Rfam assigns this 63-nucleotide RNA from Desulfofundulus thermobenzoicus to the family "Fluoride riboswitch aptamer (crcB RNA motif)". Taxonomically the source falls in Desulfofundulus (Bacteria, Clostridia, Eubacteriales, Peptococcaceae). The family's consensus secondary structure is taken from published work. It scores 50 bits against the family's covariance model.

RNA sequence: GGACUAUUAGGCGAUGGGGCUCGCCAUGAAACCGCCUUUACGGCUGAUAGCUCCUACCAAGCA
Numbered sequence: 001g002g003a004c005u006a007u008u009a010g011g012c013g014a015u016g017g018g019g020c021u022c023g024c025c026a027u028g029a030a031a032c033c034g035c036c037u038u039u040a041c042g043g044c045u046g047a048u049a050g051c052u053c054c055u056a057c058c059a060a061g062c063a
Stems, first nucleotide, its partner, number of pairs: 010025004016054006034044003